RNA sequence: UGACGAUGGCCACGGCCAUGGACAGAGCAUUCAUGUUGCAGCCUGUCAGGCUGUGAAUCAGCCUGUAAAUCCUUCC
Dot-bracket structure: .............[[[...(((..(((((.......))).]]]...(((((((.....)))))))....))..)))
Mammalian CPEB3 ribozyme: a 76-nucleotide RNA sequence from Scyliorhinus torazame. Taxonomically the source falls in Scyliorhinus (Eukaryota, Opisthokonta, Bilateria, Scyliorhinidae). It scores 43 bits against the family's covariance model. The family's consensus secondary structure is taken from published work.